[Rfam]
RNA sequence: AUCGGGCUGCCCGGUUCGUGUAGGACUCUGCAUCCCCGGGGCCUUAUCGAUCCUUAAGGGAGCUAUCCCUGUCCAGGCCCGUGGGCUUGGGUAUAUGGCGCCCACCUACAUGAGUAGGUUUCCCGGGAUCGACACGUCCCACGGCCAGGGCGGCACUUUA
Numbered sequence: 001a002u003c004g005g006g007c008u009g010c011c012c013g014g015u016u017c018g019u020g021u022a023g024g025a026c027u028c029u030g031c032a033u034c035c036c037c038g039g040g041g042c043c044u045u046a047u048c049g050a051u052c053c054u055u056a057a058g059g060g061a062g063c064u065a066u067c068c069c070u071g072u073c074c075a076g077g078c079c080c081g082u083g084g085g086c087u088u089g090g091g092u093a094u095a096u097g098g099c100g101c102c103c104a105c106c107u108a109c110a111u112g113a114g115u116a117g118g119u120u121u122c123c124c125g126g127g128a129u130c131g132a133c134a135c136g137u138c139c140c141a142c143g144g145c146c147a148g149g150g151c152g153g154c155a156c157u158u159u160a
Stems, first nucleotide, its partner, number of pairs: 004156001006154006013146003017143003033128004038123003041119003058103003062099005071092009
The record is a 160-nucleotide RNA from Pelagibacterium luteolum, which matches "6S / SsrS RNA" in Rfam. Pairs were carried over by alignment from the consensus structure, which is taken from published work. The organism belongs to Pelagibacterium, within Bacteria. From the family's description: E. coli 6S RNA was the first non coding RNA to be sequenced, but its function was unknown until recently. Rfam classes the family as a non-coding RNA gene.